[Rfam]
RNA sequence: UAGUAGAUGUACCGUGAUAAUUAAUUCCCCUGGGUGACUAACACUCACUGGGGGUUUUUUAU
Numbered sequence: 001u002a003g004u005a006g007a008u009g010u011a012c013c014g015u016g017a018u019a020a021u022u023a024a025u026u027c028c029c030c031u032g033g034g035u036g037a038c039u040a041a042c043a044c045u046c047a048c049u050g051g052g053g054g055u056u057u058u059u060u061a062u
Stems, first nucleotide, its partner, number of pairs: 003012002027054007036045001
Dot-bracket structure: ..((......))..............(((((((..(........)..)))))))........